This 63-nucleotide sequence from Mesobacillus selenatarsenatis belongs to the Rfam family "Bacillaceae-1 RNA". Pairs were carried over by alignment from the consensus structure, which is taken from published work. By type it is a small RNA. Taxonomically the source falls in Mesobacillus selenatarsenatis (Bacteria, Bacillota, Caryophanales, Bacillaceae). A search with the family's covariance model found it, with a score of 36 bits.
RNA sequence: GACAAGCGCUGCCCGCCUAAAACGCCACAUCGUGUGGCUGGCGGGUCUAGCACGUCCUGUGCC
Numbered sequence: 001g002a003c004a005a006g007c008g009c010u011g012c013c014c015g016c017c018u019a020a021a022a023c024g025c026c027a028c029a030u031c032g033u034g035u036g037g038c039u040g041g042c043g044g045g046u047c048u049a050g051c052a053c054g055u056c057c058u059g060u061g062c063c
Stems, first nucleotide, its partner, number of pairs: 011046007024038005050062004